The record is an 87-nucleotide RNA from Chenopodium quinoa, which matches "Small nucleolar RNA snoR109" in Rfam. Rfam classes the family as an H/ACA-box small nucleolar RNA.
[Rfam]
RNA sequence: UGGCUGUAGCAAUAACAAAUUAGAAGCUAUCUGACCGUUUGUUGUUAAUUUUGAUCAACGUUACUGCUUACCGAGCUUCUUAAAUUU
Number, nucleotide and partner (000 for none) at each position: 001u000002g000003g000004c000005u000006g000007u000008a000009g000010c000011a000012a000013u000014a000015a000016c000017a000018a000019a000020u000021u000022a080023g079024a078025a077026g076027c075028u074029a000030u000031c000032u000033g068034a000035c066036c000037g064038u063039u000040u000041g059042u058043u057044g056045u000046u000047a000048a000049u000050u000051u000052u000053g000054a000055u000056c044057a043058a042059c041060g000061u000062u000063a038064c037065u000066g035067c000068u033069u000070a000071c000072c000073g000074a028075g027076c026077u025078u024079c023080u022081u000082a000083a000084a000085u000086u000087u000
The family has 6 seed sequences and 680 matches in Rfam 15.1. It scores 71 bits against the family's covariance model. NCBI's taxonomy places the organism under Eukaryota, Streptophytina, eudicotyledons, Caryophyllales, Chenopodium. Rfam links the family to the GO terms RNA processing and nucleolus.